[Rfam]
RNA sequence: CCAUCAUCACCAUCAUAUGCGGUAGCCUUCGGAAGCUCACUGCCGAAGGACUAUUUCCUUCCGGCGGUUGAUUCAAGAAUAUCAAAAACCCCUGGAAGGAAUUCCGGGGGUUUUUCGUUU
Number, nucleotide and partner (000 for none) at each position: 001c000002c000003a000004u000005c000006a000007u000008c042009a041010c000011c000012a037013u000014c035015a000016u000017a000018u033019g000020c031021g030022g000023u000024a000025g000026c000027c000028u000029u000030c021031g020032g000033a018034a000035g014036c000037u012038c000039a000040c000041u009042g008043c063044c000045g061046a060047a059048g058049g057050a056051c000052u000053a000054u000055u000056u050057c049058c048059u047060u046061c045062c000063g043064g000065c000066g000067g000068u000069u000070g000071a000072u000073u000074c000075a000076a000077g000078a000079a000080u000081a000082u117083c000084a115085a114086a113087a112088a111089c110090c109091c108092c107093u106094g105095g104096a103097a102098g000099g000100a000101a000102u097103u096104c095105c094106g093107g092108g091109g090110g089111u088112u087113u086114u085115u084116c000117g082118u000119u000120u000
A member of the RNA family "Histidine operon leader" from Shewanella violacea, 120 nucleotides long.
It is annotated as a cis-regulatory leader.